[Rfam]
Nucleotides: 074
Base pairs, nucleotide, nucleotide: 001074002073003072004071005070006069010026011025012024013023014022027055028054029053030052031051032050033049
Number, partner (000 for none) and nucleotide at each position: 001074u002073a003072a004071a005070u006069g007000g008000a009000c010026c011025c012024a013023a014022a015000g016000g017000c018000g019000g020000u021000a022014u023013u024012u025011g026010g027055u028054a029053u030052u031051u032050c033049c034000a035000u036000u037000u038000a039000a040000a041000a042000a043000u044000u045000a046000a047000a048000a049033g050032g051031g052030a053029a054028u055027a056000a057000u058000a059000a060000u061000a062000g063000a064000a065000u066000u067000g068000a069006c070005a071004u072003u073002u074001a